RNA: mir-308 microRNA precursor family
RNA sequence: CACGCGGUAUUAGCCCUGUGAAUGUGUUCCCGGUACAAUCACAGGAUAAUACUGCGAG
Numbered sequence: 001c002a003c004g005c006g007g008u009a010u011u012a013g014c015c016c017u018g019u020g021a022a023u024g025u026g027u028u029c030c031c032g033g034u035a036c037a038a039u040c041a042c043a044g045g046a047u048a049a050u051a052c053u054g055c056g057a058g
Stems, first nucleotide, its partner, number of pairs: 001058001003056009015045006023037003